[Rfam]
A member of the RNA family "Bacterial RNase P class A" from Pelotomaculum propionicicum, 427 nucleotides long. A search with the family's covariance model found it, with a score of 312 bits. Its family is annotated with tRNA processing, dimeric ribonuclease P complex and ribonuclease P activity in the Gene Ontology. Taxonomically the source falls in Pelotomaculum (Bacteria, Bacillati, Bacillota, Desulfotomaculaceae). The family's RNA type in Rfam is ribozyme.
RNA sequence: UGAGUAAAUCAGGUGGUCGCGGGCGCCCGGCCAGGGCGCCUGAGGAAAGUCCGAGCUCCGCAGGGCAGGGUGCUGGGUAACACCCAGUGGGGGCGACCCCAAGGAAAGUGCCAUAGAAAUGAAGACCGCCCAGCACUCAACCUGGUGUUUGGCAGGCAAGUGUAGCCAAAAGGGUUGCCUUCACCAGGGAGGGAACCUAUCAAGUAUCAGGUUGAGUGCUGGGCAAGGGUGGAACGGUGCGGUAAGAGCGCACCAGCGGCCGGGCGACCGGCCGGCUUGGUAAACCCCACCUGGAGCAAGACCAAAUAGGGGGGCAGAGGGGCGGCCCGUCCCGCUCCCGGGUUAGGUCGCUAGAGGCGCCGGGUAACCGGCGUCCCAGACAGAUGAUCACCCACGACAGAACUCGGCUUAUCGAUUUACUCACUAC
Numbered sequence: 001u002g003a004g005u006a007a008a009u010c011a012g013g014u015g016g017u018c019g020c021g022g023g024c025g026c027c028c029g030g031c032c033a034g035g036g037c038g039c040c041u042g043a044g045g046a047a048a049g050u051c052c053g054a055g056c057u058c059c060g061c062a063g064g065g066c067a068g069g070g071u072g073c074u075g076g077g078u079a080a081c082a083c084c085c086a087g088u089g090g091g092g093g094c095g096a097c098c099c100c101a102a103g104g105a106a107a108g109u110g111c112c113a114u115a116g117a118a119a120u121g122a123a124g125a126c127c128g129c130c131c132a133g134c135a136c137u138c139a140a141c142c143u144g145g146u147g148u149u150u151g152g153c154a155g156g157c158a159a160g161u162g163u164a165g166c167c168a169a170a171a172g173g174g175u176u177g178c179c180u181u182c183a184c185c186a187g188g189g190a191g192g193g194a195a196c197c198u199a200u201c202a203a204g205u206a207u208c209a210g211g212u213u214g215a216g217u218g219c220u221g222g223g224c225a226a227g228g229g230u231g232g233a234a235c236g237g238u239g240c241g242g243u244a245a246g247a248g249c250g251c252a253c254c255a256g257c258g259g260c261c262g263g264g265c266g267a268c269c270g271g272c273c274g275g276c277u278u279g280g281u282a283a284a285c286c287c288c289a290c291c292u293g294g295a296g297c298a299a300g301a302c303c304a305a306a307u308a309g310g311g312g313g314g315c316a317g318a319g320g321g322g323c324g325g326c327c328c329g330u331c332c333c334g335c336u337c338c339c340g341g342g343u344u345a346g347g348u349c350g351c352u353a354g355a356g357g358c359g360c361c362g363g364g365u366a367a368c369c370g371g372c373g374u375c376c377c378a379g380a381c382a383g384a385u386g387a388u389c390a391c392c393c394a395c396g397a398c399a400g401a402a403c404u405c406g407g408c409u410u411a412u413c414g415a416u417u418u419a420c421u422c423a424c425u426a427c
Stems, first nucleotide, its partner, number of pairs: 001423010011412001012392007020042009047410003051407005056296004063328004068292005073087005088102001089100004103287002108285002110281003126228002128224025236254006256276001257274007300349004310339006319333005356375008